[Rfam]
RNA sequence: AAGAACAGUGAUGAGUUAUAACAGACCUGUAAUGAUUCGUGAAUAUGAUCGCAGAUUUUUAUGAACAUCUGAGGGACUGAGUUCUU
Numbered sequence: 001a002a003g004a005a006c007a008g009u010g011a012u013g014a015g016u017u018a019u020a021a022c023a024g025a026c027c028u029g030u031a032a033u034g035a036u037u038c039g040u041g042a043a044u045a046u047g048a049u050c051g052c053a054g055a056u057u058u059u060u061a062u063g064a065a066c067a068u069c070u071g072a073g074g075g076a077c078u079g080a081g082u083u084c085u086u
Stems, first nucleotide, its partner, number of pairs: 002085005
RNA: Small nucleolar RNA SNORD25
Organism: Hibiscus trionum